[Rfam]
RNA sequence: UAAUUUAUAUAGGGUAGAUACUCAUCUAGUUAUGAUAUAUCCAUGCAUAACUAUUAAAAAUCAUCCAUUAUUACAAGCGUGGCCACAUUAGGAUCUGGUCAGCCUUUUCAGAGCCAACUAGAUAAAUUUCUUUGAAAGCU
Dot-bracket structure: ...(((..(..(.((..((.......(((((....................................................................................))))).))..)).)..)...)))..

The record is a 140-nucleotide sequence from Populus tomentosa, which matches "MIR480 microRNA precursor family" in Rfam. The literature on the family includes a 2005 paper in Plant Cell by Lu et al., "Novel and mechanical stress-responsive MicroRNAs in Populus trichocarpa that are absent from Arabidopsis". NCBI's taxonomy places the organism under Eukaryota, Spermatophyta, Malpighiales, Saliceae, Populus.